[Rfam]
RNA sequence: ACUCAACGCCAACAAAUUAAAAUGGACGAAACUUUGCUACUAUAGCACGCUACCUCGAGUAGAUCCUUGAACAGCAAGAUAGUUCAAAACUUGUUUUUAAGAGUUU
Numbered sequence: 001a002c003u004c005a006a007c008g009c010c011a012a013c014a015a016a017u018u019a020a021a022a023u024g025g026a027c028g029a030a031a032c033u034u035u036g037c038u039a040c041u042a043u044a045g046c047a048c049g050c051u052a053c054c055u056c057g058a059g060u061a062g063a064u065c066c067u068u069g070a071a072c073a074g075c076a077a078g079a080u081a082g083u084u085c086a087a088a089a090c091u092u093g094u095u096u097u098u099a100a101g102a103g104u105u106u
Stems, first nucleotide, its partner, number of pairs: 023086005034077005044067002050062004
RNA: 6S-Flavo RNA